[Rfam]
RNA sequence: AAGCGAAGGUCCCAGCAGUGAGGUGAAUACUCUAUUAUUGAGACCUCUCUAACAUUAAUUUAACCUUCGCAGAUGAAAUGCCGAACUAUCAGAUGCCCAAAUUCUAAAUGUUUGGAACAUCUUCGAACCCUUGGCAAAAUUUCA
Numbered sequence: 001a002a003g004c005g006a007a008g009g010u011c012c013c014a015g016c017a018g019u020g021a022g023g024u025g026a027a028u029a030c031u032c033u034a035u036u037a038u039u040g041a042g043a044c045c046u047c048u049c050u051a052a053c054a055u056u057a058a059u060u061u062a063a064c065c066u067u068c069g070c071a072g073a074u075g076a077a078a079u080g081c082c083g084a085a086c087u088a089u090c091a092g093a094u095g096c097c098c099a100a101a102u103u104c105u106a107a108a109u110g111u112u113u114g115g116a117a118c119a120u121c122u123u124c125g126a127a128c129c130c131u132u133g134g135c136a137a138a139a140u141u142u143c144a
Stems, first nucleotide, its partner, number of pairs: 003070007011020001013018001025049002030042003034038001080135005092121002095118001097115006
RNA: Small nucleolar RNA snoR145